[Rfam]
RNA sequence: AGACCGCCUACCCGGUCUCUUGCUGGGCUCCGCUGACCGCCCGCAGGUGAGAGGUGAGGAGGGGGACGUUUCCUCCUCACCUCUCACCUGCGGGCGGUCAGCGGAGCCCAGCAAGAGACCGGGUAGGCGGUCU
Numbered sequence: 001a002g003a004c005c006g007c008c009u010a011c012c013c014g015g016u017c018u019c020u021u022g023c024u025g026g027g028c029u030c031c032g033c034u035g036a037c038c039g040c041c042c043g044c045a046g047g048u049g050a051g052a053g054g055u056g057a058g059g060a061g062g063g064g065g066a067c068g069u070u071u072c073c074u075c076c077u078c079a080c081c082u083c084u085c086a087c088c089u090g091c092g093g094g095c096g097g098u099c100a101g102c103g104g105a106g107c108c109c110a111g112c113a114a115g116a117g118a119c120c121g122g123g124u125a126g127g128c129g130g131u132c133u
Base pairs, nucleotide, nucleotide: 003131004130005129006128007127008126009125011123012122013121014120015119016118017117018116019115020114021113022112023111024110025109026108027107028106029105030104031103032102033101034100035099036098037097038096039095040094041093042092045089046088047087048086050084051083052082053081054080055079056078057077058076059075060074061073062072063071

The record is a 133-nucleotide sequence from Frankliniella occidentalis, which matches "MIR898 microRNA precursor family" in Rfam. Rfam links the family to the GO terms RISC complex and miRNA-mediated post-transcriptional gene silencing.